[Rfam]
RNA sequence: GGUCAUGAGCGCCAGCUGUCAGCCCCGGCUAGCUGGCCGGCAACCCUCCAACCGCGGUGGGGUGCCCCGGGUGAUGACCGGGUUACUCGACUCCGCGCACCACGCGCGGGACGUCGAUGGCAAGCGCGGGUC
Dot-bracket structure: ((((....(.((((((....((......)).)))))))(((..(((.((......))..))).))).........))))..((((.(((((.....................)))))))))...........
Source information:
The record is a 132-nucleotide RNA sequence from Rhodococcus sp. PBTS 1, which matches "SAM (S-adenosyl methionine) riboswitch aptamer" in Rfam. Taxonomically the source falls in Rhodococcus (Bacteria, Actinomycetes, Mycobacteriales, Nocardiaceae). Its Rfam clan is "SAM clan". The match comes from Rfam's covariance-model search (101 bits).